[Rfam]
RNA sequence: AUAGCUCCGGGUAACUGGCGAGACGGUGGAAGCAACCACAGGGGAGCCUGGAGCGAGAUUCACAAAGCAGUCGUUCGCCUGGGCUGGAAUA
Numbered sequence: 001a002u003a004g005c006u007c008c009g010g011g012u013a014a015c016u017g018g019c020g021a022g023a024c025g026g027u028g029g030a031a032g033c034a035a036c037c038a039c040a041g042g043g044g045a046g047c048c049u050g051g052a053g054c055g056a057g058a059u060u061c062a063c064a065a066a067g068c069a070g071u072c073g074u075u076c077g078c079c080u081g082g083g084c085u086g087g088a089a090u091a
Stems, first nucleotide, its partner, number of pairs: 004054009015043002017079005026039004068086005

This 91-nucleotide sequence from Reticulibacter mediterranei belongs to the Rfam family "ZMP/ZTP riboswitch aptamer (pfl RNA motif)". Pairs were carried over by alignment from the consensus structure, which is taken from published work. It scores 62 bits against the family's covariance model.